[Rfam]
RNA sequence: UACAUGCUAAGAAAGCGCAUGCCGGUAGAGUCUUUCUGUGCCUCACCAAUUUGUAAUUACUCUACCAGUAUGUUAAGCUAUAGCGACU
Numbered sequence: 001u002a003c004a005u006g007c008u009a010a011g012a013a014a015g016c017g018c019a020u021g022c023c024g025g026u027a028g029a030g031u032c033u034u035u036c037u038g039u040g041c042c043u044c045a046c047c048a049a050u051u052u053g054u055a056a057u058u059a060c061u062c063u064a065c066c067a068g069u070a071u072g073u074u075a076a077g078c079u080a081u082a083g084c085g086a087c088u
Stems, first nucleotide, its partner, number of pairs: 005082002008080002017073006024066004029061003035056001

The family of this 88-nucleotide RNA from Wolbachia endosymbiont wVitA of Nasonia vitripennis phage WOVitA4 is "Wolbachia sRNA 59". It is annotated as a small RNA. The organism belongs to Caudoviricetes, within Viruses.